[Rfam]
Nucleotides: 069
Base pairs, nucleotide, nucleotide: 001018002017003016004015006014007013008012029047030046031045032044033043034042035041
Number, partner (000 for none) and nucleotide at each position: 001018g002017g003016g004015c005000a006014c007013c008012u009000a010000c011000g012008g013007g014006g015004g016003c017002c018001u019000c020000a021000a022000c023000c024000a025000u026000a027000u028000a029047g030046g031045c032044c033043c034042c035041a036000c037000c038000c039000g040000u041035u042034g043033g044032g045031g046030c047029c048000g049000c050000c051000a052000a053000g054000c055000a056000a057000a058000c059000g060000g061000a062000a063000g064000a065000a066000g067000c068000u069000a
Background:
Rfam assigns this 69-nucleotide RNA sequence from Pseudooctadecabacter jejudonensis to the family "L2-Alphaproteobacteria ribosomal protein leader". The family's consensus secondary structure is taken from published work. The match comes from Rfam's covariance-model search (54 bits). It is annotated as a cis-regulatory leader. The source organism's lineage runs through Bacteria, Pseudomonadota, Alphaproteobacteria, Rhodobacterales and Pseudooctadecabacter.